[Rfam]
RNA sequence: AGAAACUGAUUUCAUCUGGUGACAUAGAUGUGUGUAUCCAGUCUCUAGCACCAUAUGAAAUCAGUGUUUU
Numbered sequence: 001a002g003a004a005a006c007u008g009a010u011u012u013c014a015u016c017u018g019g020u021g022a023c024a025u026a027g028a029u030g031u032g033u034g035u036a037u038c039c040a041g042u043c044u045c046u047a048g049c050a051c052c053a054u055a056u057g058a059a060a061u062c063a064g065u066g067u068u069u070u
Stems, first nucleotide, its partner, number of pairs: 001069003004065001006064009017053005025047004
Shown here is a 70-nucleotide RNA from Pleuronectes platessa, a member of the family "mir-29 microRNA precursor family". The family's consensus secondary structure was predicted with PFOLD. On this family, see Ambros, Cell 2001: "microRNAs: tiny regulators with great potential". From the family's description: This family represents the microRNA (miRNA) precursors mir-29.